[Rfam]
RNA sequence: UGUGCUUUAAUGACGACUUGUUUCUAAACUCUGAUGAGAGGACAGAUCUGAUGCCAGCAGCACA
Numbered sequence: 001u002g003u004g005c006u007u008u009a010a011u012g013a014c015g016a017c018u019u020g021u022u023u024c025u026a027a028a029c030u031c032u033g034a035u036g037a038g039a040g041g042a043c044a045g046a047u048c049u050g051a052u053g054c055c056a057g058c059a060g061c062a063c064a
Base pairs, nucleotide, nucleotide: 001064002063003062004061005060015048016047018045019044020043021042022041023040029038030037031036
RNA: Selenocysteine insertion sequence 1
Organism: Labrus bergylta